[Rfam]
RNA sequence: AUGCAGGUACAGUUACAAUAUAACUAAAGUGUUUCAUUGUCAUUUCCCCUGCUUAAAGCAUUUGAUACAUUACUAUCUCUGUCUAGUUCAUUCCAUGAUAAGACAGAGAUGCUUGGUGACAAACAU
Dot-bracket structure: ..(((((.......(((((..(((......)))..))))).......))))).........................((((.((.(............).)).))))...................